Lysine riboswitch aptamer: a 184-nucleotide RNA from Alteribacillus iranensis. It scores 126 bits against the family's covariance model.
[Rfam]
RNA sequence: AGUGAGGUUAGAGGCGCGAAGACCAUGAGUAAGUAAUAGGAGGAUGAAUGAGGUCCGUUGAAUAUUACUGAAAGGGGAAUUUGCCGAAGCAUGCAGCUACUCAUUAGUUGUAGGCUGGUUCCGUAUUGAAGAAAUGCGGAACUGUCAUAUAGCAUGUGAUGCUAUAUGGAGGGCUAUCUCACGC
Numbered sequence: 001a002g003u004g005a006g007g008u009u010a011g012a013g014g015c016g017c018g019a020a021g022a023c024c025a026u027g028a029g030u031a032a033g034u035a036a037u038a039g040g041a042g043g044a045u046g047a048a049u050g051a052g053g054u055c056c057g058u059u060g061a062a063u064a065u066u067a068c069u070g071a072a073a074g075g076g077g078a079a080u081u082u083g084c085c086g087a088a089g090c091a092u093g094c095a096g097c098u099a100c101u102c103a104u105u106a107g108u109u110g111u112a113g114g115c116u117g118g119u120u121c122c123g124u125a126u127u128g129a130a131g132a133a134a135u136g137c138g139g140a141a142c143u144g145u146c147a148u149a150u151a152g153c154a155u156g157u158g159a160u161g162c163u164a165u166a167u168g169g170a171g172g173g174c175u176a177u178c179u180c181a182c183g184c
Stems, first nucleotide, its partner, number of pairs: 006179002009176003016084005023077002032069007088116003092112008117143011145169007